The family of this 71-nucleotide sequence from Rhipicephalus microplus is "mir-965 microRNA precursor family". NCBI's taxonomy places the organism under Eukaryota, Panarthropoda, Arthropoda, Ixodida, Boophilus. The match comes from Rfam's covariance-model search (47 bits). Its family is annotated with RISC complex and miRNA-mediated post-transcriptional gene silencing in the Gene Ontology. On this family, see Huang et al., Bioorg Khim 2012: "The regulation of silkworm fibroin L chain production by miRNA-965 and miRNA-1926 in insect cells".
Nucleotides: 071
Stems, first nucleotide, its partner, number of pairs: 003069005009063003013059002017055005024048006
Number, partner (000 for none) and nucleotide at each position: 001000u002000u003069c004068a005067u006066c007065a008000g009063g010062g011061g012000a013059u014058g015000a016000g017055u018054u019053a020052u021051a022000c023000u024048g025047a026046c027045a028044u029043g030000a031000a032000c033000u034000u035000c036000c037000a038000a039000a040000c041000u042000u043029c044028a045027u046026g047025u048024c049000a050000g051021u052020a053019u054018a055017a056000c057000u058014c059013a060000u061011c062010c063009c064000c065007u066006g067005a068004u069003g070000a071000a